[Rfam]
RNA: mir-552 microRNA precursor family
RNA sequence: AUAUACCACAGUUUGUUUGACCAUUAACCUGUUUGUUGAAGAUGCCUUUCAACGGGUGACUGGUUAGACAAACUGUGGUAUAU
Numbered sequence: 001a002u003a004u005a006c007c008a009c010a011g012u013u014u015g016u017u018u019g020a021c022c023a024u025u026a027a028c029c030u031g032u033u034u035g036u037u038g039a040a041g042a043u044g045c046c047u048u049u050c051a052a053c054g055g056g057u058g059a060c061u062g063g064u065u066a067g068a069c070a071a072a073c074u075g076u077g078g079u080a081u082a083u
Stems, first nucleotide, its partner, number of pairs: 001083022025059001027057007038049004